[Rfam]
RNA sequence: CUCUUAUCCCGAGCUGGUGGAGGGACAGGCCCUAUGAAACCCAGCAACCUGCUUUAAUAAUUAAUUACGAUAACUGUAAUUAAUAUAAAAGAGAAGGUGCUAACCUGAGGCAAGGAUUUUAGUCCUUGAACGAUAAGAG
Numbered sequence: 001c002u003c004u005u006a007u008c009c010c011g012a013g014c015u016g017g018u019g020g021a022g023g024g025a026c027a028g029g030c031c032c033u034a035u036g037a038a039a040c041c042c043a044g045c046a047a048c049c050u051g052c053u054u055u056a057a058u059a060a061u062u063a064a065u066u067a068c069g070a071u072a073a074c075u076g077u078a079a080u081u082a083a084u085a086u087a088a089a090a091g092a093g094a095a096g097g098u099g100c101u102a103a104c105c106u107g108a109g110g111c112a113a114g115g116a117u118u119u120u121a122g123u124c125c126u127u128g129a130a131c132g133a134u135a136a137g138a139g
Stems, first nucleotide, its partner, number of pairs: 001139008013042001016041003022032003026110001029106001043101004048097002050093001052091004111128006
Dot-bracket structure: ((((((((....(..(((...(((.[..[)))......))))((((.(((.((((................................)))).)..))))))....]...]((((((......))))))...))))))))

A member of the RNA family "SAM riboswitch aptamer (S box leader)" from Bacillus sp. Y1, 139 nucleotides long. Lineage of the source: Bacteria > Bacillota > Caryophanales > Bacillaceae > Bacillus. Rfam's curators write: The SAM riboswitch is found upstream of a number of genes which code for proteins involved in methionine or cysteine biosynthesis in Gram-positive bacteria. The match comes from Rfam's covariance-model search (72 bits).